[Rfam]
RNA sequence: GGUAUAAUUUUAUAUCAUUCCCAUGAUAAGCCCCGGAAACUUAUUGUGAAGUGUAUAUAGAGUAA
Dot-bracket structure: ........(((((((......(((((((((.........)))))))))......)))))))....
RNA: Ribosomal protein L13 leader